[Rfam]
RNA: S. aureus tsr25 small RNA
RNA sequence: UAAUAGUAGUUGAAAAUGAUUAUCAAUACCACAUAGAACAUCCCCCCCCCACAACGUUUCGUUCUUGUUGGAUUGGUCAUUUUCAAAUAUUCCCCUUUUAUAUGCCCGUAAAAGACAAUAUACGUUAUAACAACGUUUUAUAAAAGCAGUAAACCCUUACGACACUUUAGGUUUACUGCUUUU
Number, nucleotide and partner (000 for none) at each position: 001u000002a000003a000004u000005a091006g090007u089008a088009g000010u086011u085012g084013a083014a082015a081016a080017u079018g078019a077020u076021u000022a000023u000024c075025a074026a073027u072028a000029c071030c070031a069032c000033a000034u000035a065036g064037a063038a062039c061040a000041u000042c000043c000044c000045c000046c000047c000048c000049c000050c000051a000052c000053a000054a000055c000056g000057u000058u000059u000060c000061g039062u038063u037064c036065u035066u000067g000068u000069u031070g030071g029072a027073u026074u025075g024076g020077u019078c018079a017080u016081u015082u014083u013084c012085a011086a010087a000088u008089a007090u006091u005092c000093c000094c000095c114096u113097u112098u111099u110100a109101u108102a000103u000104g000105c000106c000107c000108g101109u100110a099111a098112a097113a096114g095115a000116c000117a000118a000119u000120a000121u000122a136123c135124g134125u133126u132127a000128u000129a000130a000131c000132a126133a125134c124135g123136u122137u000138u000139u000140a000141u000142a183143a182144a181145a180146g179147c178148a177149g176150u175151a174152a173153a172154c171155c170156c000157u000158u000159a000160c000161g000162a000163c000164a000165c000166u000167u000168u000169a000170g155171g154172u153173u152174u151175a150176c149177u148178g147179c146180u145181u144182u143183u142